[Rfam]
The family of this 113-nucleotide RNA is "drum RNA". Rfam classes the family as a small RNA. It is one of the family's seed sequences.

RNA sequence: AAGCGUUGAAGCAUAAUAGCGUACCGGAAUGCCUUGUUAUGCAGAGCUUUCAGUAGGGGUUGUGCAGUAACCUCAAACCGGAGUAGGCUGCAAGCCGAAAGAAAAUGCUCGAA
Numbered sequence: 001a002a003g004c005g006u007u008g009a010a011g012c013a014u015a016a017u018a019g020c021g022u023a024c025c026g027g028a029a030u031g032c033c034u035u036g037u038u039a040u041g042c043a044g045a046g047c048u049u050u051c052a053g054u055a056g057g058g059g060u061u062g063u064g065c066a067g068u069a070a071c072c073u074c075a076a077a078c079c080g081g082a083g084u085a086g087g088c089u090g091c092a093a094g095c096c097g098a099a100a101g102a103a104a105a106u107g108c109u110c111g112a113a
Stems, first nucleotide, its partner, number of pairs: 001049004011042009021032002024081004064108003086096004